[Rfam]
RNA sequence: GGUCAUGAGCGCCAGCGUCAAGCCCCGGCUUGCUGGCCGGCAACCCUUCGUCCGCGAUGGGGUGCCCCGGGUGAGGACCUGGCCGGACGCACACCGCGUCCCGGCAAGCGCGGAUC
Numbered sequence: 001g002g003u004c005a006u007g008a009g010c011g012c013c014a015g016c017g018u019c020a021a022g023c024c025c026c027g028g029c030u031u032g033c034u035g036g037c038c039g040g041c042a043a044c045c046c047u048u049c050g051u052c053c054g055c056g057a058u059g060g061g062g063u064g065c066c067c068c069g070g071g072u073g074a075g076g077a078c079c080u081g082g083c084c085g086g087a088c089g090c091a092c093a094c095c096g097c098g099u100c101c102c103g104g105c106a107a108g109c110g111c112g113g114a115u116c
Stems, first nucleotide, its partner, number of pairs: 001079004009038001011037006021030002039066003044062003048057002082105005087099004
Dot-bracket structure: ((((....(.((((((....((......)).)))))))(((..(((.((......))..))).))).........))))..(((((((((.....)))).)))))...........
SAM (S-adenosyl methionine) riboswitch aptamer: a 116-nucleotide sequence from Actinomadura viridis. Rfam 15.1 lists 2,360 matches to the family in 1,305 species. Rfam's curators write: SAM-IV is a mRNA element that regulates gene expression via direct sensing of S-adenosylmethionine (SAM or AdoMet). The organism belongs to Actinomadura, within Bacteria.